[Rfam]
RNA sequence: UCAAUUAAAUAUACUUUCACUUAUAUAUCGUCGAAAUAAGGUCGACAGUCUCUACCUGAUACCGUAAAUAUCAGACUAUAAGUUAAAAUAAGCGUGUG
Numbered sequence: 001u002c003a004a005u006u007a008a009a010u011a012u013a014c015u016u017u018c019a020c021u022u023a024u025a026u027a028u029c030g031u032c033g034a035a036a037u038a039a040g041g042u043c044g045a046c047a048g049u050c051u052c053u054a055c056c057u058g059a060u061a062c063c064g065u066a067a068a069u070a071u072c073a074g075a076c077u078a079u080a081a082g083u084u085a086a087a088a089u090a091a092g093c094g095u096g097u098g
Stems, first nucleotide, its partner, number of pairs: 019083007030046005056074006
RNA: Purine riboswitch aptamer
Organism: Vagococcus lutrae